Rfam assigns this 112-nucleotide RNA from Panagrolaimus sp. JU765 to the family "SL2 RNA". From the family's description: This family represents SL2 RNA. SL2 RNA is involved in trans splicing in lower eukaryotes. Trans-splicing is a form of RNA processing. The acquisition of a spliced leader from a SL RNA is a intra-molecular reaction which precisely joins exons derived from separately transcribed RNAs. Approximately 25% of C. elegans genes are organised into polycistronic transcription units and the presence of SL2 on an mRNA is an indication the the gene is in an operon. The match comes from Rfam's covariance-model search (46 bits). By type it is a non-coding RNA gene. Lineage of the source: Eukaryota > Ecdysozoa > Rhabditida > Panagrolaimidae > Panagrolaimus.

RNA sequence: GGUUAUUACCCAGUAUUUCAAGGUACUAGGAACGUUCUGAUCAGAGGAAACUCUGUGUUAGAAAACAUGAAUUUUUGGUAAUGCGCUAAGGGGGUGUAUCCCAUGGUGCUUA
Numbered sequence: 001g002g003u004u005a006u007u008a009c010c011c012a013g014u015a016u017u018u019c020a021a022g023g024u025a026c027u028a029g030g031a032a033c034g035u036u037c038u039g040a041u042c043a044g045a046g047g048a049a050a051c052u053c054u055g056u057g058u059u060a061g062a063a064a065a066c067a068u069g070a071a072u073u074u075u076u077g078g079u080a081a082u083g084c085g086c087u088a089a090g091g092g093g094g095u096g097u098a099u100c101c102c103a104u105g106g107u108g109c110u111u112a
Stems, first nucleotide, its partner, number of pairs: 008035001009030002013026002018023001038060004042055005085110001087108002091104001093101002

Its Rfam clan is "SL clan". For this family Rfam cites "trans splicing of polycistronic Caenorhabditis elegans pre-mRNAs: analysis of the SL2 RNA" (Evans and Blumenthal, Mol Cell Biol, 2000).